[Rfam]
RNA sequence: GACACACUUCCUUAGAUCCAUUCCUGGGGCAAAACAAUGACAUUCUUCUGCAUUGUUUACAGGCUUGCCCUGUAACACUGCUUAAGUGUGUUGGCAGUUGCCCAACAGCGCUAAGCUGCAGAUUGGGAAUGCUUGAGUCAUGAGUGUGUGAGAUCAAUAUACCUCUCUGUGGUGCAUCUUUGCCUUCUGAUUGUCAGCCUAGAUGCCAUAGUGCAGCUAGUCUUUGAUCCUUAUGUCAGUUGGAUAGCAUUGCAAGGGACAAU
Numbered sequence: 001g002a003c004a005c006a007c008u009u010c011c012u013u014a015g016a017u018c019c020a021u022u023c024c025u026g027g028g029g030c031a032a033a034a035c036a037a038u039g040a041c042a043u044u045c046u047u048c049u050g051c052a053u054u055g056u057u058u059a060c061a062g063g064c065u066u067g068c069c070c071u072g073u074a075a076c077a078c079u080g081c082u083u084a085a086g087u088g089u090g091u092u093g094g095c096a097g098u099u100g101c102c103c104a105a106c107a108g109c110g111c112u113a114a115g116c117u118g119c120a121g122a123u124u125g126g127g128a129a130u131g132c133u134u135g136a137g138u139c140a141u142g143a144g145u146g147u148g149u150g151a152g153a154u155c156a157a158u159a160u161a162c163c164u165c166u167c168u169g170u171g172g173u174g175c176a177u178c179u180u181u182g183c184c185u186u187c188u189g190a191u192u193g194u195c196a197g198c199c200u201a202g203a204u205g206c207c208a209u210a211g212u213g214c215a216g217c218u219a220g221u222c223u224u225u226g227a228u229c230c231u232u233a234u235g236u237c238a239g240u241u242g243g244a245u246a247g248c249a250u251u252g253c254a255a256g257g258g259a260c261a262a263u
Stems, first nucleotide, its partner, number of pairs: 002149007011137005019131008027103006035094001037092001040089004046085001050081003055076001057075007106118004163258004171251004